[Rfam]
RNA sequence: GCAUUGGUUUGGAUUUGUAGCAGGCCCAUCCCCUGGGUCUCUCAUAGUGUCCCAUGCCAGAGCACGCUGUGACCUUGAAACAUAACCUGGCCCCUGCCCAUAGGCUGCAGGCACUGAGCAGGUUACAAAAUG
Numbered sequence: 001g002c003a004u005u006g007g008u009u010u011g012g013a014u015u016u017g018u019a020g021c022a023g024g025c026c027c028a029u030c031c032c033c034u035g036g037g038u039c040u041c042u043c044a045u046a047g048u049g050u051c052c053c054a055u056g057c058c059a060g061a062g063c064a065c066g067c068u069g070u071g072a073c074c075u076u077g078a079a080a081c082a083u084a085a086c087c088u089g090g091c092c093c094c095u096g097c098c099c100a101u102a103g104g105c106u107g108c109a110g111g112c113a114c115u116g117a118g119c120a121g122g123u124u125a126c127a128a129a130a131u132g
Stems, first nucleotide, its partner, number of pairs: 001057004006051003015047004020042001022040003025036002070125006081116002086111002088107005